[Rfam]
RNA sequence: UUGAAAGAUAUGGAAGAGACUAUAUAUUAGCGCCGAAGGUGAAAAAACUCUCAGGCAAAAGGACCAUAUCCGGACG
Numbered sequence: 001u002u003g004a005a006a007g008a009u010a011u012g013g014a015a016g017a018g019a020c021u022a023u024a025u026a027u028u029a030g031c032g033c034c035g036a037a038g039g040u041g042a043a044a045a046a047a048c049u050c051u052c053a054g055g056c057a058a059a060a061g062g063a064c065c066a067u068a069u070c071c072g073g074a075c076g
Stems, first nucleotide, its partner, number of pairs: 007070007020030003032056003035052002039050001041048001

The family of this 76-nucleotide sequence from Coprococcus sp. AF21-14LB is "Glycine riboswitch aptamer". The source organism's lineage runs through Bacteria, Bacillota, Lachnospirales, Lachnospiraceae and Coprococcus. From the family's description: This family represents the bacterial glycine riboswitch.